[Rfam]
RNA sequence: GAGACACCCCUAGGGAGCAGGACUUGCUUCAGUUUGGCUUUCGUGCUCACUGAGUCUGCCCCUUAGGUGUGUCGCU
Numbered sequence: 001g002a003g004a005c006a007c008c009c010c011u012a013g014g015g016a017g018c019a020g021g022a023c024u025u026g027c028u029u030c031a032g033u034u035u036g037g038c039u040u041u042c043g044u045g046c047u048c049a050c051u052g053a054g055u056c057u058g059c060c061c062c063u064u065a066g067g068u069g070u071g072u073c074g075c076u
Stems, first nucleotide, its partner, number of pairs: 001075001003073005009067004014062002017059003021056003029053005036046001037044002
RNA: mir-9229 microRNA precursor family